The family of this 89-nucleotide RNA from Aneurinibacillus danicus is "c-di-GMP-I riboswitch aptamer".
The base pairs follow the family's consensus structure, which is taken from published work.
NCBI's taxonomy places the organism under Bacteria, Bacillota, Bacilli, Paenibacillaceae, Aneurinibacillus.
It scores 87 bits against the family's covariance model.
Rfam links the family to the GO term cyclic-di-GMP binding.
[Rfam]
RNA sequence: UUGUCGAAAAGGCAAACUCAUUGAAAGAUGAGGACGCAAAGCCACGGGCCUAAAGUGUUAGAAAAUGCUAUGGCGGCCGGGUUACCGAA
Numbered sequence: 001u002u003g004u005c006g007a008a009a010a011g012g013c014a015a016a017c018u019c020a021u022u023g024a025a026a027g028a029u030g031a032g033g034a035c036g037c038a039a040a041g042c043c044a045c046g047g048g049c050c051u052a053a054a055g056u057g058u059u060a061g062a063a064a065a066u067g068c069u070a071u072g073g074c075g076g077c078c079g080g081g082u083u084a085c086c087g088a089a
Stems, first nucleotide, its partner, number of pairs: 012037002017032006040083004045079003048074003055068004